RNA: Archaeal large subunit ribosomal RNA, nucleotides 2122 to 2700
RNA sequence: CCUCUGUCGGGGAGAGAAGACCCUGUGGAGCUUUACUGCAGCCUGUUGUUGCGGUAUGGUUGUGGAUGCAGAGCGUAGCUGGGAGCCAUCGAAGCCAGUCCUCCGGGAUUGGUGGAGGCGCCGUUGUAACACCAGCCUUUCAUUACCGUAUCGCUAACCCGUUCUCACGGGGACAUCGGCAGGUGGGCAGUUCGGCUGGGGCGGCACCCCCUUGAAAAUGUAUCGAGGGGGCCCAAAGAUUGGCUCAGGCGGGACAGAACUCCGCCGGUGAGGGCAAAGCCAAAAGCCAGUCUGACUGAAUUCCCAAUGAUACGGAAUCCAGAGGCGAAAGCCGGGCUUAGCGAUCCAUCGUGUCCCCACUAUUGGGGGCCGGUGGUGACAGAAAAGUUACCCUAGGGAUAACAGGCUCGUCGCGGGCGAGAGCUCCCAUCGACCCCGCGGUUUGGUACCUCGAUGUCGGCUCUUCCCAUCCUGGUUCUGCAGCAGGAGCCAAGGGUGGGGCUGCUCGCCCAUUAAAGGGGAACGUGAGCUGGGUUUAGACCGUCGUGAGACAGGUCGGUCUCUGCCUGACAGGGGCGU
Numbered sequence: 001c002c003u004c005u006g007u008c009g010g011g012g013a014g015a016g017a018a019g020a021c022c023c024u025g026u027g028g029a030g031c032u033u034u035a036c037u038g039c040a041g042c043c044u045g046u047u048g049u050u051g052c053g054g055u056a057u058g059g060u061u062g063u064g065g066a067u068g069c070a071g072a073g074c075g076u077a078g079c080u081g082g083g084a085g086c087c088a089u090c091g092a093a094g095c096c097a098g099u100c101c102u103c104c105g106g107g108a109u110u111g112g113u114g115g116a117g118g119c120g121c122c123g124u125u126g127u128a129a130c131a132c133c134a135g136c137c138u139u140u141c142a143u144u145a146c147c148g149u150a151u152c153g154c155u156a157a158c159c160c161g162u163u164c165u166c167a168c169g170g171g172g173a174c175a176u177c178g179g180c181a182g183g184u185g186g187g188c189a190g191u192u193c194g195g196c197u198g199g200g201g202c203g204g205c206a207c208c209c210c211c212u213u214g215a216a217a218a219u220g221u222a223u224c225g226a227g228g229g230g231g232c233c234c235a236a237a238g239a240u241u242g243g244c245u246c247a248g249g250c251g252g253g254a255c256a257g258a259a260c261u262c263c264g265c266c267g268g269u270g271a272g273g274g275c276a277a278a279g280c281c282a283a284a285a286g287c288c289a290g291u292c293u294g295a296c297u298g299a300a301u302u303c304c305c306a307a308u309g310a311u312a313c314g315g316a317a318u319c320c321a322g323a324g325g326c327g328a329a330a331g332c333c334g335g336g337c338u339u340a341g342c343g344a345u346c347c348a349u350c351g352u353g354u355c356c357c358c359a360c361u362a363u364u365g366g367g368g369g370c371c372g373g374u375g376g377u378g379a380c381a382g383a384a385a386a387g388u389u390a391c392c393c394u395a396g397g398g399a400u401a402a403c404a405g406g407c408u409c410g411u412c413g414c415g416g417g418c419g420a421g422a423g424c425u426c427c428c429a430u431c432g433a434c435c436c437c438g439c440g441g442u443u444u445g446g447u448a449c450c451u452c453g454a455u456g457u458c459g460g461c462u463c464u465u466c467c468c469a470u471c472c473u474g475g476u477u478c479u480g481c482a483g484c485a486g487g488a489g490c491c492a493a494g495g496g497u498g499g500g501g502c503u504g505c506u507c508g509c510c511c512a513u514u515a516a517a518g519g520g521g522a523a524c525g526u527g528a529g530c531u532g533g534g535u536u537u538a539g540a541c542c543g544u545c546g547u548g549a550g551a552c553a554g555g556u557c558g559g560u561c562u563c564u565g566c567c568u569g570a571c572a573g574g575g576g577c578g579u
Base pairs, nucleotide, nucleotide: 001576002575003574004573005572006571007570008569010568011567012566014563015562022397023396024395025394027393028392029389030388031387032386033385035191036190037189038188042183043182044181045180046179047178048177051154052153053152054151055150056149057148058147059146060145062143063142064141065140066139068137078136079135080134081133082132085119086118087117097110098109099108100107101106158171159170160169161168194207195205196204197203208230209229210228211227212226213225233336234335239291240290241289242288243287244286245271246270248266249265250264251263252262253261272281273280296322297321298320300318301317302316303315304314324333326331347375348374349373350372351371353370355369356368357367358366406447407446408445410444411441412440413439414438415437416436417435421431422430458533459531460530461529462528463525464522465521466520467519468518471496472495475490476489477488478487479486499511500510501509502508539557540556541555542554543552544551545550